[Rfam]
RNA: Small Cajal body specific RNA 3
Organism: Nesidiocoris tenuis
RNA sequence: AGUGGAAUCGAUUCUUUCAAUAAUGUCUGGACCGAACGAGUCAUUUCCGUCCAGAUCCGACGAUUCCUACAGGAAAACGGAGGUUUCUGAGUGGUGGGGCUUCCAAUGCCCUAUCUCUUCGUUCCCCUCCGAACACC
Numbered sequence: 001a002g003u004g005g006a007a008u009c010g011a012u013u014c015u016u017u018c019a020a021u022a023a024u025g026u027c028u029g030g031a032c033c034g035a036a037c038g039a040g041u042c043a044u045u046u047c048c049g050u051c052c053a054g055a056u057c058c059g060a061c062g063a064u065u066c067c068u069a070c071a072g073g074a075a076a077a078c079g080g081a082g083g084u085u086u087c088u089g090a091g092u093g094g095u096g097g098g099g100c101u102u103c104c105a106a107u108g109c110c111c112u113a114u115c116u117c118u119u120c121g122u123u124c125c126c127c128u129c130c131g132a133a134c135a136c137c
Base pairs, nucleotide, nucleotide: 004067005066006065008063009062010061012060026055027054028053029052030051031050032049034046035045036044079130080129081128082127083126087121089119090118091117093115094114095113096112097111098110099109